[Rfam]
RNA sequence: CGUUGUCAUCACGACAACUGCCAAUGUUCCGGUGGUUUGAGAGGAACGCCUUCGGGUAAUCACAUGCCAAUGCCAUCAUAACCUGAGAGAUGGCGCUUUCGGGCGGUUCAAACCUGUUAACCUUUGCAAACAGGGGCCUCUUCACCGGCCAAGGUCCAC
Numbered sequence: 001c002g003u004u005g006u007c008a009u010c011a012c013g014a015c016a017a018c019u020g021c022c023a024a025u026g027u028u029c030c031g032g033u034g035g036u037u038u039g040a041g042a043g044g045a046a047c048g049c050c051u052u053c054g055g056g057u058a059a060u061c062a063c064a065u066g067c068c069a070a071u072g073c074c075a076u077c078a079u080a081a082c083c084u085g086a087g088a089g090a091u092g093g094c095g096c097u098u099u100c101g102g103g104c105g106g107u108u109c110a111a112a113c114c115u116g117u118u119a120a121c122c123u124u125u126g127c128a129a130a131c132a133g134g135g136g137c138c139u140c141u142u143c144a145c146c147g148g149c150c151a152a153g154g155u156c157c158a159c
Base pairs, nucleotide, nucleotide: 002018003017004016005015006014007013026047027046028045029044030043032063033062034061035060036059037058048057049056050055072094073093074092075091076090080108081107082106083105095104096103097102113134114133115132116131117130120155121154122153123152124151136149137148138147

STAXI RNA: a 159-nucleotide RNA sequence from Erwinia mallotivora. The family's consensus secondary structure is taken from published work. The source organism's lineage runs through Bacteria, Pseudomonadati, Enterobacterales, Erwiniaceae and Erwinia.